RNA sequence: AAACUUAAAAGGCAAACCUAUUGAAAAAUAGGGACGCAAAGCUACGAGUCUAAGGGUAUUACCUAUGAUAGUCGGGUCGCAGUA
Numbered sequence: 001a002a003a004c005u006u007a008a009a010a011g012g013c014a015a016a017c018c019u020a021u022u023g024a025a026a027a028a029u030a031g032g033g034a035c036g037c038a039a040a041g042c043u044a045c046g047a048g049u050c051u052a053a054g055g056g057u058a059u060u061a062c063c064u065a066u067g068a069u070a071g072u073c074g075g076g077u078c079g080c081a082g083u084a
Base pairs, nucleotide, nucleotide: 012037013036017032018031019030020029021028022027041077042076043075045074046073047072048069049068050067055063056062057061
Dot-bracket structure: ...........((...((((((....))))))...))...(((.((((((....(((...)))...)))..)))))).......

Description:
A member of the RNA family "c-di-GMP-I riboswitch aptamer" from Anaerosporobacter mobilis, 84 nucleotides long. Rfam links the family to the GO term cyclic-di-GMP binding. The match comes from Rfam's covariance-model search (80 bits).